The family of this 89-nucleotide sequence from Phoenix dactylifera is "Small nucleolar RNA Z159/U59". NCBI's taxonomy places the organism under Eukaryota, Viridiplantae, Liliopsida, Petrosaviidae, Phoenix. A reference for the family is Chen et al. (2003), "The high diversity of snoRNAs in plants: identification and comparative study of 120 snoRNA genes from Oryza sativa", Nucleic Acids Res. The family has 10 seed sequences and 1,401 matches in Rfam 15.1. Pairs were carried over by alignment from the consensus structure, which was predicted with PFOLD. The family is grouped with related families in Rfam's "SNORD59 clan".
[Rfam]
RNA sequence: GUUUCCGGUGAUGAUCAGAAAAACUUUCGUUCUUCCGAGGUGUUUGUUAUACAAUGCGGAAGAUUCAUGGAGACCUGAACUGAGGAAAC
Dot-bracket structure: ..((((.............................................................................))))..